[Rfam]
RNA sequence: UGGUAGAUGCACCCUGAUUUCGACCCCUCGCCUCUGGUGAGGGGUUUUUUGU
Numbered sequence: 001u002g003g004u005a006g007a008u009g010c011a012c013c014c015u016g017a018u019u020u021c022g023a024c025c026c027c028u029c030g031c032c033u034c035u036g037g038u039g040a041g042g043g044g045u046u047u048u049u050u051g052u
Stems, first nucleotide, its partner, number of pairs: 002013003024044009
RNA: Nitrogen stress-induced RNA 1
Organism: Leptolyngbyaceae cyanobacterium M33_DOE_097